[Rfam]
RNA sequence: CGCCUUAACAUCACAGGUCCCUUGGUGGCUGUAUCCAUCAAUGCCACUUCACAGGAUACCCAUUGAGGCCAGA
Numbered sequence: 001c002g003c004c005u006u007a008a009c010a011u012c013a014c015a016g017g018u019c020c021c022u023u024g025g026u027g028g029c030u031g032u033a034u035c036c037a038u039c040a041a042u043g044c045c046a047c048u049u050c051a052c053a054g055g056a057u058a059c060c061c062a063u064u065g066a067g068g069c070c071a072g073a
Base pairs, nucleotide, nucleotide: 002069003068004067005066006065007064017057018056019055020054025047026046027045028044029043
The family of this 73-nucleotide RNA sequence from Trypanosoma cruzi is "Trypanosomatid snoRNA TB6Cs1H4". The match comes from Rfam's covariance-model search (86 bits). The organism belongs to Schizotrypanum, within Eukaryota. Pairs were carried over by alignment from the consensus structure, which was predicted with WAR. Its family is annotated with RNA processing and nucleolus in the Gene Ontology.